[Rfam]
RNA: Bacillus sRNA ncr1015
Organism: Alicyclobacillus sp. SO9
RNA sequence: GUGUACAAUGGGACUUCUAUGAGAAAUUUAUAAAAACACAGACGUGGCCUUAUUGUAUCGCUGUGUCUGUUUUUAUGCAAUAGCAAAGGGCCUGGAGAAUUUGUCCAGGCUCUUUGUUUG
Numbered sequence: 001g002u003g004u005a006c007a008a009u010g011g012g013a014c015u016u017c018u019a020u021g022a023g024a025a026a027u028u029u030a031u032a033a034a035a036a037c038a039c040a041g042a043c044g045u046g047g048c049c050u051u052a053u054u055g056u057a058u059c060g061c062u063g064u065g066u067c068u069g070u071u072u073u074u075a076u077g078c079a080a081u082a083g084c085a086a087a088g089g090g091c092c093u094g095g096a097g098a099a100u101u102u103g104u105c106c107a108g109g110c111u112c113u114u115u116g117u118u119u120g
Base pairs, nucleotide, nucleotide: 034074035073036072038070039069040066042064043063044062084116085115086114087113088112089111090110091109092108093107094106095105